[Rfam]
RNA sequence: GCUUGCGAAGAUGAAAACACGGCCCGGUUGGUAGUCCGGGCGCGAAGGUGCAGGCGCGGGUGCGUGCGUCGGCGGCUUCGUCAGUAACCUGCCUCCUUGGUUGUCCGUUCUUCGUGGUACACCA
Numbered sequence: 001g002c003u004u005g006c007g008a009a010g011a012u013g014a015a016a017a018c019a020c021g022g023c024c025c026g027g028u029u030g031g032u033a034g035u036c037c038g039g040g041c042g043c044g045a046a047g048g049u050g051c052a053g054g055c056g057c058g059g060g061u062g063c064g065u066g067c068g069u070c071g072g073c074g075g076c077u078u079c080g081u082c083a084g085u086a087a088c089c090u091g092c093c094u095c096c097u098u099g100g101u102u103g104u105c106c107g108u109u110c111u112u113c114g115u116g117g118u119a120c121a122c123c124a
Stems, first nucleotide, its partner, number of pairs: 004116008022041006042081006091101003
A member of the RNA family "azaaromatic riboswitch aptamer (yjdF RNA)" from Eggerthella sp. YY7918, 124 nucleotides long. The base pairs follow the family's consensus structure, which is taken from published work. The organism belongs to Eggerthella, within Bacteria.